[Rfam]
RNA sequence: ACUUCUGCUCUGGGUGAGAGAAACACGUAUUGAAGAAGGUUCAUGGCUUAGACAAUAAGUUGCUACUUUGCUGAACUCACCAUUUUAUGUGAAGAAGUGGCUAUGCUAAUUGUUUGAUUCUGUACACGUACGAUACGGGUCGCUCUCACCUGGAGUAGGGCUGC
Numbered sequence: 001a002c003u004u005c006u007g008c009u010c011u012g013g014g015u016g017a018g019a020g021a022a023a024c025a026c027g028u029a030u031u032g033a034a035g036a037a038g039g040u041u042c043a044u045g046g047c048u049u050a051g052a053c054a055a056u057a058a059g060u061u062g063c064u065a066c067u068u069u070g071c072u073g074a075a076c077u078c079a080c081c082a083u084u085u086u087a088u089g090u091g092a093a094g095a096a097g098u099g100g101c102u103a104u105g106c107u108a109a110u111u112g113u114u115u116g117a118u119u120c121u122g123u124a125c126a127c128g129u130a131c132g133a134u135a136c137g138g139g140u141c142g143c144u145c146u147c148a149c150c151u152g153g154a155g156u157a158g159g160g161c162u163g164c
Stems, first nucleotide, its partner, number of pairs: 003160005009154012023140002026137007033118001036115001038114002
MIR4416 microRNA precursor family: a 164-nucleotide sequence from Glycine max.
Rfam links the family to the GO terms miRNA-mediated post-transcriptional gene silencing and RISC complex.
NCBI's taxonomy places the organism under Eukaryota, Streptophyta, Mesangiospermae, Fabaceae, Glycine subgen. Soja.
The family's consensus secondary structure was predicted with RNAalifold.
Rfam's curators put it in the seed alignment.